[Rfam]
RNA: Bacterial RNase P class A
Organism: Scardovia inopinata
RNA sequence: UGAGACCUCUUGAUGGUCGCGGCAUUAUACAAGGUAUAAUGCUGAGGAACUUCCGGGCUCCACAGAGCACGAUGGCGGAUAACGUCCGCCCAGGGCAACCUGAGAGAUAGCGCAACAGAAAGCAAACCGCUGUCUUGUUCUCCUUUCCACCGAGUGUGGGAACUGCUGAAAGCAGGGAGGAAGACAGGAUAGUAAGGGUGAAACGGCGGUGUAAGAGACCACCAAGUCGAUGGCAACAUUAGACUGUUAGGCAAGCCUCAUCGGGAGCAAGGCCAAGUAGGAGACGAUAAGAGCUGCUCGUUCGAGUCUCCGGGUAGGCUGCUGGAGCCUAGCGGCAACGUUAGGUCGAGAUGGAUGACCAUCCGUUUAACGACAGAACCCGGGGUAUAAGAGGUCUCACUUU
Numbered sequence: 001u002g003a004g005a006c007c008u009c010u011u012g013a014u015g016g017u018c019g020c021g022g023c024a025u026u027a028u029a030c031a032a033g034g035u036a037u038a039a040u041g042c043u044g045a046g047g048a049a050c051u052u053c054c055g056g057g058c059u060c061c062a063c064a065g066a067g068c069a070c071g072a073u074g075g076c077g078g079a080u081a082a083c084g085u086c087c088g089c090c091c092a093g094g095g096c097a098a099c100c101u102g103a104g105a106g107a108u109a110g111c112g113c114a115a116c117a118g119a120a121a122g123c124a125a126a127c128c129g130c131u132g133u134c135u136u137g138u139u140c141u142c143c144u145u146u147c148c149a150c151c152g153a154g155u156g157u158g159g160g161a162a163c164u165g166c167u168g169a170a171a172g173c174a175g176g177g178a179g180g181a182a183g184a185c186a187g188g189a190u191a192g193u194a195a196g197g198g199u200g201a202a203a204c205g206g207c208g209g210u211g212u213a214a215g216a217g218a219c220c221a222c223c224a225a226g227u228c229g230a231u232g233g234c235a236a237c238a239u240u241a242g243a244c245u246g247u248u249a250g251g252c253a254a255g256c257c258u259c260a261u262c263g264g265g266a267g268c269a270a271g272g273c274c275a276a277g278u279a280g281g282a283g284a285c286g287a288u289a290a291g292a293g294c295u296g297c298u299c300g301u302u303c304g305a306g307u308c309u310c311c312g313g314g315u316a317g318g319c320u321g322c323u324g325g326a327g328c329c330u331a332g333c334g335g336c337a338a339c340g341u342u343a344g345g346u347c348g349a350g351a352u353g354g355a356u357g358a359c360c361a362u363c364c365g366u367u368u369a370a371c372g373a374c375a376g377a378a379c380c381c382g383g384g385g386u387a388u389a390a391g392a393g394g395u396c397u398c399a400c401u402u403u
Base pairs, nucleotide, nucleotide: 001399002398003397004396005395006394007393008392009391010390012363013362014361015360016359017358018357020044021043022042023041024040025039026038027037028036049386050385051384053383054382055381056380057379058267059266060265061264065299066298067297068296070263071262072261073260074259075089076088077087078086079085090104091102092101093100094099105258106257110256111255112252113251127197128196129193130192131191132190133189134188135187136186137185138184139183205223206222208220209219210218224247225245226244227243228242230239231238232237271320272319273318274317280311281310282309283308284307285306291303292302293301294300327346328345329344330343331342332341333340334339